[Rfam]
RNA sequence: AAUACUCGGCAUUGCAGAGACAUAAAUGCGAUGGCGCGACGUGCGCGGAGUGGCCGCGCGAUUAUAAGCUAAAUCAAUCGCGGCGAAAGGACAAU
Dot-bracket structure: ....[[[..(((((..]]].........))))).(((((...(((((.......)))))..................))))).............
Numbered sequence: 001a002a003u004a005c006u007c008g009g010c011a012u013u014g015c016a017g018a019g020a021c022a023u024a025a026a027u028g029c030g031a032u033g034g035c036g037c038g039a040c041g042u043g044c045g046c047g048g049a050g051u052g053g054c055c056g057c058g059c060g061a062u063u064a065u066a067a068g069c070u071a072a073a074u075c076a077a078u079c080g081c082g083g084c085g086a087a088a089g090g091a092c093a094a095u
Stems, first nucleotide, its partner, number of pairs: 005019003010033005035082005043059005
The record is a 95-nucleotide sequence, which matches "GP20-a RNA" in Rfam. Rfam classes the family as a cis-regulatory element. The base pairs follow the family's consensus structure, which is taken from published work.